[Rfam]
RNA sequence: GAUUGCGGUGAUGACUCCAUAAUAUCAAGCUCAACAGACCGGAUGGCAGGUUUUUCUCUGUUGAGGAAAUAUUUGCGUGUCGACAACCCGCUGAUCUGAGCAAUC
Numbered sequence: 001g002a003u004u005g006c007g008g009u010g011a012u013g014a015c016u017c018c019a020u021a022a023u024a025u026c027a028a029g030c031u032c033a034a035c036a037g038a039c040c041g042g043a044u045g046g047c048a049g050g051u052u053u054u055u056c057u058c059u060g061u062u063g064a065g066g067a068a069a070u071a072u073u074u075g076c077g078u079g080u081c082g083a084c085a086a087c088c089c090g091c092u093g094a095u096c097u098g099a100g101c102a103a104u105c
Stems, first nucleotide, its partner, number of pairs: 001105006